[Rfam]
RNA sequence: UGGUAGAUGCACCCUAAUUAAUUUACAGCCCUCAGCCCUAGGUUGGGGGCUUUUUUA
Numbered sequence: 001u002g003g004u005a006g007a008u009g010c011a012c013c014c015u016a017a018u019u020a021a022u023u024u025a026c027a028g029c030c031c032u033c034a035g036c037c038c039u040a041g042g043u044u045g046g047g048g049g050c051u052u053u054u055u056u057a
Stems, first nucleotide, its partner, number of pairs: 002013003028050010
Dot-bracket structure: .(((......)))..............((((((((((...)))))))))).......